[Rfam]
RNA sequence: AACGCGUAUCCUGAAAAGCGAAAAAAGAGUAGGGG
Number, nucleotide and partner (000 for none) at each position: 001a000002a000003c020004g019005c018006g000007u000008a000009u000010c034011c033012u032013g000014a000015a000016a000017a000018g005019c004020g003021a000022a000023a000024a000025a000026a000027g000028a000029g000030u000031a000032g012033g011034g010035g000
RNA: DUF805b RNA
Organism: Taishania pollutisoli